[Rfam]
RNA sequence: AGAGGUCAGGUUUAAGGCCAUAGCAGAAGUGCUCAUGGCACGGCCAAAUCAGAUCCCAGUGAAUCUGCCAAUUCUGCU
Numbered sequence: 001a002g003a004g005g006u007c008a009g010g011u012u013u014a015a016g017g018c019c020a021u022a023g024c025a026g027a028a029g030u031g032c033u034c035a036u037g038g039c040a041c042g043g044c045c046a047a048a049u050c051a052g053a054u055c056c057c058a059g060u061g062a063a064u065c066u067g068c069c070a071a072u073u074c075u076g077c078u
Base pairs, nucleotide, nucleotide: 013046016045017044018043019042022078023077024076025075026074027073028072029041030040031039050067051066052065053064054063056061
RNA: Mammalian CPEB3 ribozyme
Organism: Alligator sinensis